Annotation: Rfam assigns this 241-nucleotide sequence from Halalkalibacter krulwichiae to the family "T-box leader".
[Rfam]
RNA sequence: ACAAAUGCAACGAAAGAGAGUAGUACGUUUUUAGCCACCAUGCAGGGAGAAAAUGCCUUAGACUGGAAGCAUUUUUAUGGAAGGGGAAACUGAAUUCACUCUGGAGCAGACACUGGACCACAAGUGAGACUUGUGAAGGUGUUCCGGUUUUAGCCGUUACAGCAAUGAAGAUAAUAGUGUAUAAGUGUAUUUUUAUGUACAUUAUUAACUAAGGGUGGUACCACGAGUCUUCGUCCCUUUU
Numbered sequence: 001a002c003a004a005a006u007g008c009a010a011c012g013a014a015a016g017a018g019a020g021u022a023g024u025a026c027g028u029u030u031u032u033a034g035c036c037a038c039c040a041u042g043c044a045g046g047g048a049g050a051a052a053a054u055g056c057c058u059u060a061g062a063c064u065g066g067a068a069g070c071a072u073u074u075u076u077a078u079g080g081a082a083g084g085g086g087a088a089a090c091u092g093a094a095u096u097c098a099c100u101c102u103g104g105a106g107c108a109g110a111c112a113c114u115g116g117a118c119c120a121c122a123a124g125u126g127a128g129a130c131u132u133g134u135g136a137a138g139g140u141g142u143u144c145c146g147g148u149u150u151u152a153g154c155c156g157u158u159a160c161a162g163c164a165a166u167g168a169a170g171a172u173a174a175u176a177g178u179g180u181a182u183a184a185g186u187g188u189a190u191u192u193u194u195a196u197g198u199a200c201a202u203u204a205u206u207a208a209c210u211a212a213g214g215g216u217g218g219u220a221c222c223a224c225g226a227g228u229c230u231u232c233g234u235c236c237c238u239u240u241u
Stems, first nucleotide, its partner, number of pairs: 007107002015102004027090005038080003049076008109143006145156003173206011212238004223234004
By type it is a cis-regulatory leader.
Gene Ontology term of the family: tRNA binding.
Taxonomically the source falls in Halalkalibacter (Bacteria, Bacillati, Bacilli, Caryophanales).
On this family, see Winkler et al., RNA 2001: "The GA motif: an RNA element common to bacterial antitermination systems, rRNA, and eukaryotic RNAs".